[Rfam]
RNA: mir-219 microRNA precursor family
Organism: Gadus morhua
RNA sequence: CUCGAGGUUGAUUGUCCAAACGCAAUUCUUGUGUUCCUGGUGGCAGCAGGAGUUGUGACUGGACAUCUGCCCUCUGG
Numbered sequence: 001c002u003c004g005a006g007g008u009u010g011a012u013u014g015u016c017c018a019a020a021c022g023c024a025a026u027u028c029u030u031g032u033g034u035u036c037c038u039g040g041u042g043g044c045a046g047c048a049g050g051a052g053u054u055g056u057g058a059c060u061g062g063a064c065a066u067c068u069g070c071c072c073u074c075u076g077g
Stems, first nucleotide, its partner, number of pairs: 002076001004074004010067003014064005021057011